[Rfam]
RNA: ASpks TB sRNA
RNA sequence: CUUGGCCGACCCCAGCCACAGCGGCGUCUCCCGGUCCUGGCCGUAGGUCGCCAGCAGCGCGUGCGCCUC
Numbered sequence: 001c002u003u004g005g006c007c008g009a010c011c012c013c014a015g016c017c018a019c020a021g022c023g024g025c026g027u028c029u030c031c032c033g034g035u036c037c038u039g040g041c042c043g044u045a046g047g048u049c050g051c052c053a054g055c056a057g058c059g060c061g062u063g064c065g066c067c068u069c
Stems, first nucleotide, its partner, number of pairs: 015025003028065001030063001032059002037054003041050001043048001